RNA sequence: UAAAAGAAAAGGCAAACUUAUUGAAAAAUAAGGACGCAAAACUACAGGUCUAAGGUAGAAGAUUUUUCUUUGCUAUGAUGGCUGGGUUGCCAAA
Number, nucleotide and partner (000 for none) at each position: 001u000002a000003a000004a000005a000006g000007a000008a000009a000010a000011g000012g037013c036014a000015a000016a000017c032018u031019u030020a029021u028022u027023g000024a000025a000026a000027a022028a021029u020030a019031a018032g017033g000034a000035c000036g013037c012038a000039a000040a088041a087042c086043u085044a000045c084046a083047g082048g079049u078050c077051u000052a000053a000054g000055g073056u072057a071058g070059a000060a000061g000062a000063u000064u000065u000066u000067u000068c000069u000070u058071u057072g056073c055074u000075a000076u000077g050078a049079u048080g000081g000082c047083u046084g045085g043086g042087u041088u040089g000090c000091c000092a000093a000094a000

Overview
Rfam assigns this 94-nucleotide RNA from Halalkalibacter nanhaiisediminis to the family "c-di-GMP-I riboswitch aptamer". A search with the family's covariance model found it, with a score of 81 bits. Lineage of the source: Bacteria > Bacillati > Caryophanales > Bacillaceae > Halalkalibacter.